[Rfam]
The record is a 142-nucleotide RNA from Populus tomentosa, which matches "small nucleolar RNA snoR143" in Rfam. Its family is annotated with nucleolus and RNA processing in the Gene Ontology. It scores 60 bits against the family's covariance model. The family's RNA type in Rfam is H/ACA-box small nucleolar RNA. A reference for the family is Chen and Wu (2009), "Mining small RNA sequencing data: a new approach to identify small nucleolar RNAs in Arabidopsis", Nucleic Acids Res.

RNA sequence: CUUCACUUUCUUUUCAAGAGCAGAAAAUUUUGCUUUUUGGAAACUGGUGAGGUAAUUAGGCAGCGGCCAGACAACCGUAGGGAUGAUAUCCACAGAUGACGGGCUGUUAAUCCCGUUUGUCUACUGAUUCCAUCUCACAUUU
Number, nucleotide and partner (000 for none) at each position: 001c000002u051003u050004c049005a048006c047007u000008u000009u043010c000011u000012u000013u041014u040015c039016a038017a037018g036019a034020g033021c032022a031023g000024a000025a000026a000027a000028u000029u000030u000031u022032g021033c020034u019035u000036u018037u017038u016039g015040g014041a013042a000043a009044c000045u000046g000047g006048u005049g004050a003051g002052g000053u000054a000055a000056u000057u000058a000059g000060g000061c000062a000063g000064c000065g000066g000067c000068c000069a000070g000071a000072c000073a000074a000075c000076c000077g000078u000079a000080g136081g135082g134083a133084u132085g131086a000087u000088a129089u000090c000091c000092a000093c000094a000095g000096a000097u000098g000099a118100c115101g114102g113103g000104c000105u000106g000107u000108u000109a000110a000111u000112c000113c102114c101115g100116u000117u000118u099119g000120u000121c000122u000123a000124c000125u000126g000127a000128u000129u088130c000131c085132a084133u083134c082135u081136c080137a000138c000139a000140u000141u000142u000